[Rfam]
RNA sequence: GGGGGCGAUUCUGGAUUCGACAGGAUUCACGAAACCCUGGGAGCAUGUCGAGGGGCGGUUGGCCUCGUAAAAAGCCGCACUGUUAUAGUUGCAAACGACUCUAACUACUCUCUAGCAGCUUAGGCUAGCUAGCCAUCAACCACACGUUUCGCAUAUGGGCAGUGGAUUUUGAUGGUCAUAUUACAUCAUGCUAGCGAGGGAACUCUGUCCGAGGGUGAACCGCGAAAUAGUAUCGGACCCGCCAAUGAUAAUCCUGUCUUUCGGAGUGUUAUUGGUUAAUUAAAAGAGAGACUAAACAUGUAGCGCCUUGGAUGUAGGCUUUCUGGACGCGGGUUCAAAUCCCGCCGCCUCCACCA
Numbered sequence: 001g002g003g004g005g006c007g008a009u010u011c012u013g014g015a016u017u018c019g020a021c022a023g024g025a026u027u028c029a030c031g032a033a034a035c036c037c038u039g040g041g042a043g044c045a046u047g048u049c050g051a052g053g054g055g056c057g058g059u060u061g062g063c064c065u066c067g068u069a070a071a072a073a074g075c076c077g078c079a080c081u082g083u084u085a086u087a088g089u090u091g092c093a094a095a096c097g098a099c100u101c102u103a104a105c106u107a108c109u110c111u112c113u114a115g116c117a118g119c120u121u122a123g124g125c126u127a128g129c130u131a132g133c134c135a136u137c138a139a140c141c142a143c144a145c146g147u148u149u150c151g152c153a154u155a156u157g158g159g160c161a162g163u164g165g166a167u168u169u170u171g172a173u174g175g176u177c178a179u180a181u182u183a184c185a186u187c188a189u190g191c192u193a194g195c196g197a198g199g200g201a202a203c204u205c206u207g208u209c210c211g212a213g214g215g216u217g218a219a220c221c222g223c224g225a226a227a228u229a230g231u232a233u234c235g236g237a238c239c240c241g242c243c244a245a246u247g248a249u250a251a252u253c254c255u256g257u258c259u260u261u262c263g264g265a266g267u268g269u270u271a272u273u274g275g276u277u278a279a280u281u282a283a284a285a286g287a288g289a290g291a292c293u294a295a296a297c298a299u300g301u302a303g304c305g306c307c308u309u310g311g312a313u314g315u316a317g318g319c320u321u322u323c324u325g326g327a328c329g330c331g332g333g334u335u336c337a338a339a340u341c342c343c344g345c346c347g348c349c350u351c352c353a354c355c356a
Stems, first nucleotide, its partner, number of pairs: 001352007021325005028318001034313001036311002039308003043304001044300005049067005055078006111132001117126003133175006140165004146160003151191004194223003207239001210236001241276010252265003256292007329345005

Rfam assigns this 356-nucleotide sequence from Shewanella intestini to the family "transfer-messenger RNA".
The base pairs follow the family's consensus structure, which is taken from published work.
A search with the family's covariance model found it, with a score of 221 bits.
Rfam's curators write: Bacterial tmRNA, also known as 10Sa RNA or SsrA, is named for its dual tRNA and mRNA-like properties.